[Rfam]
RNA sequence: CCUUGACCACACGGGAGCCCCGAAGCAGGGGCUGAGACAUGGGCUGCAGCUGCCCUGGACCGUUGAACCUGUCCGGGUAAUGCCGGCGAAGGAAGUGAGUUCCACCCAUGA
Numbered sequence: 001c002c003u004u005g006a007c008c009a010c011a012c013g014g015g016a017g018c019c020c021c022g023a024a025g026c027a028g029g030g031g032c033u034g035a036g037a038c039a040u041g042g043g044c045u046g047c048a049g050c051u052g053c054c055c056u057g058g059a060c061c062g063u064u065g066a067a068c069c070u071g072u073c074c075g076g077g078u079a080a081u082g083c084c085g086g087c088g089a090a091g092g093a094a095g096u097g098a099g100u101u102c103c104a105c106c107c108a109u110g111a
Stems, first nucleotide, its partner, number of pairs: 008097003011063004017032005039056001041055004068092003073086004
Dot-bracket structure: .......(((((((..(((((......)))))......(.((((.......)))))...))))....(((..((((......))))...)))..)))..............
TPP riboswitch aptamer (THI element): a 111-nucleotide RNA from Arthrobacter psychrolactophilus. Rfam's curators write: Vitamin B(1) in its active form thiamin pyrophosphate (TPP) is an essential coenzyme that is synthesised by coupling of pyrimidine and thiazole moieties in bacteria. The previously detected thiamin-regulatory element, thi box was extended, resulting in a new, highly conserved RNA secondary structure, the THI element, which is widely distributed in eubacteria and also occurs in some archaea. Analysis of operon structures identified a large number of new candidate thiamin-regulated genes, mostly transporters, in various prokaryotic organisms. The THI element is a riboswitch that directly binds to TPP to regulate gene expression through a variety of mechanisms in archaea, bacteria and eukaryotes. through a variety of mechanisms in archaea, bacteria and eukaryotes. Tandem TPP riboswitches have been reported where both TPP riboswitches respond independently to TPP. The structure of TPP riboswitch has been reported for Escherichia coli and Arabidopsis thaliana. Taxonomically the source falls in Arthrobacter (Bacteria, Bacillati, Actinomycetota, Micrococcaceae).